[Rfam]
RNA sequence: UCUGUGGAGUGUCACAUCAAACUGUGGUAGUUUCGACGAAACAGGGCACGAAGAAGCAGAAA
Numbered sequence: 001u002c003u004g005u006g007g008a009g010u011g012u013c014a015c016a017u018c019a020a021a022c023u024g025u026g027g028u029a030g031u032u033u034c035g036a037c038g039a040a041a042c043a044g045g046g047c048a049c050g051a052a053g054a055a056g057c058a059g060a061a062a
Stems, first nucleotide, its partner, number of pairs: 001060005009049005022044003030037002

A member of the RNA family "RAGATH-18 RNA", 62 nucleotides long.
By type it is a small RNA.
Actinobacteria, Firmicutes, Fusobacteria, Thermotogae (1 example).